[Rfam]
RNA sequence: CACCACACUAUUAAUGAAUGGAUUCGUCCAUGAUAUGAAGUGGUUGUUUCACCUAGGAUAAGGAUGUGGCAUCCUAUUAAUUUCGUGCGAUAGCUGGUAAUAGGCCACGUCCUUGUCCUAAGUGGAACAACUAUGUCAUAUCACGGGUGCAUCCAUUCAUUGAUAGUGUGGUU
Numbered sequence: 001c002a003c004c005a006c007a008c009u010a011u012u013a014a015u016g017a018a019u020g021g022a023u024u025c026g027u028c029c030a031u032g033a034u035a036u037g038a039a040g041u042g043g044u045u046g047u048u049u050c051a052c053c054u055a056g057g058a059u060a061a062g063g064a065u066g067u068g069g070c071a072u073c074c075u076a077u078u079a080a081u082u083u084c085g086u087g088c089g090a091u092a093g094c095u096g097g098u099a100a101u102a103g104g105c106c107a108c109g110u111c112c113u114u115g116u117c118c119u120a121a122g123u124g125g126a127a128c129a130a131c132u133a134u135g136u137c138a139u140a141u142c143a144c145g146g147g148u149g150c151a152u153c154c155a156u157u158c159a160u161u162g163a164u165a166g167u168g169u170g171g172u173u
Stems, first nucleotide, its partner, number of pairs: 002172006009165007017157003021153003025149004031143003035139004041133008051123002054120002057117002063111003069105002074103006086097001

Rfam assigns this 173-nucleotide RNA sequence from Oryza barthii to the family "MIR807 microRNA precursor family". Lineage of the source: Eukaryota > Viridiplantae > Embryophyta > Spermatophyta > Oryza. For this family Rfam cites "Rice embryogenic calli express a unique set of microRNAs, suggesting regulatory roles of microRNAs in plant post-embryogenic development" (Luo et al., FEBS Lett, 2006). The base pairs follow the family's consensus structure, which was predicted with WAR. Rfam links the family to the GO terms RISC complex and miRNA-mediated post-transcriptional gene silencing.